Nucleotides: 133
Base pairs, nucleotide, nucleotide: 002133003132004131005130007129008128010126011125012124013123014122019034020033021032022031023030024029036089037088038087045059046058047057048056049055060082061081062080063079064076065075066074067073068072
Number, partner (000 for none) and nucleotide at each position: 001000c002133u003132g004131a005130a006000c007129c008128g009000a010126u011125a012124c013123c014122u015000g016000a017000g018000g019034c020033a021032g022031g023030c024029u025000u026000u027000c028000g029024a030023g031022c032021c033020u034019g035000a036089g037088g038087g039000g040000a041000c042000a043000u044000u045059c046058c047057u048056g049055c050000u051000u052000u053000a054000c055049g056048c057047a058046g059045g060082c061081g062080g063079u064076u065075g066074c067073a068072c069000u070000g071000a072068g073067u074066g075065c076064a077000u078000c079063a080062c081061c082060g083000a084000u085000g086000c087038c088037c089036c090000g091000c092000c093000a094000u095000a096000c097000c098000u099000c100000a101000u102000c103000c104000g105000c106000u107000g108000c109000c110000g111000c112000u113000c114000u115000g116000g117000c118000g119000c120000a121000c122014g123013g124012g125011u126010a127000c128008c129007g130005u131004u132003c133002a